RNA sequence: GAUACCUUAUAUGACUGACGGAAGUGGAGUUUACCACAGGGAGUAUAAGGGGUAGAAGCCGACCGUCUGGGCAAUCUCG
Numbered sequence: 001g002a003u004a005c006c007u008u009a010u011a012u013g014a015c016u017g018a019c020g021g022a023a024g025u026g027g028a029g030u031u032u033a034c035c036a037c038a039g040g041g042a043g044u045a046u047a048a049g050g051g052g053u054a055g056a057a058g059c060c061g062a063c064c065g066u067c068u069g070g071g072c073a074a075u076c077u078c079g
Stems, first nucleotide, its partner, number of pairs: 003052001005050008015040002017067005024037004058072003
Dot-bracket structure: ..(.((((((((..(([[[[[..((((......)))).))..)))))))).).....(((..]]]]]..))).......

Source information: ZMP/ZTP riboswitch aptamer (pfl RNA motif): a 79-nucleotide sequence from Firmicutes bacterium CAG:646. Taxonomically the source falls in Bacillota (Bacteria, Bacillati). A search with the family's covariance model found it, with a score of 61 bits. The family's consensus secondary structure is taken from published work.